[Rfam]
RNA sequence: CAUCCCUGUGAAGAACGUAAGAUUGAAAUAAAAGUAGUGGCCUGAUCUAAUUGAUGAAAUUAUUAUUCUGAGGGAUA
Numbered sequence: 001c002a003u004c005c006c007u008g009u010g011a012a013g014a015a016c017g018u019a020a021g022a023u024u025g026a027a028a029u030a031a032a033a034g035u036a037g038u039g040g041c042c043u044g045a046u047c048u049a050a051u052u053g054a055u056g057a058a059a060u061u062a063u064u065a066u067u068c069u070g071a072g073g074g075a076u077a
Stems, first nucleotide, its partner, number of pairs: 002076005

Small nucleolar RNA R21: a 77-nucleotide RNA from Olea europaea. The match comes from Rfam's covariance-model search (53 bits). The family's consensus secondary structure was predicted with PFOLD.